[Rfam]
RNA: msiK RNA
RNA sequence: CCCUGCGACCCUGUUCUCGGAUCGUCCGGCACGUUCCUGCCGGGAUGGGAUGACUGA
Numbered sequence: 001c002c003c004u005g006c007g008a009c010c011c012u013g014u015u016c017u018c019g020g021a022u023c024g025u026c027c028g029g030c031a032c033g034u035u036c037c038u039g040c041c042g043g044g045a046u047g048g049g050a051u052g053a054c055u056g057a
Stems, first nucleotide, its partner, number of pairs: 009049003013046003026043006